[Rfam]
RNA sequence: CCAAUGACCCGCGGGAGCCCGGUAAGUCCGGGCUGAGAGGGAGGCACUCCAGCCUCCGACCGCCGAACCUGAUCCGGAUAAUGCCGGCGCAGGAAGGGAAGAUCCGAUGGCG
Numbered sequence: 001c002c003a004a005u006g007a008c009c010c011g012c013g014g015g016a017g018c019c020c021g022g023u024a025a026g027u028c029c030g031g032g033c034u035g036a037g038a039g040g041g042a043g044g045c046a047c048u049c050c051a052g053c054c055u056c057c058g059a060c061c062g063c064c065g066a067a068c069c070u071g072a073u074c075c076g077g078a079u080a081a082u083g084c085c086g087g088c089g090c091a092g093g094a095a096g097g098g099a100a101g102a103u104c105c106g107a108u109g110g111c112g
Stems, first nucleotide, its partner, number of pairs: 008098003011063004017033005040057005068093004074087004
The family of this 112-nucleotide sequence from Nakamurella panacisegetis is "TPP riboswitch aptamer (THI element)". Lineage of the source: Bacteria > Bacillati > Actinomycetota > Nakamurellales > Nakamurella. It scores 65 bits against the family's covariance model. Gene Ontology term of the family: thiamine pyrophosphate binding. The family's consensus secondary structure is taken from published work.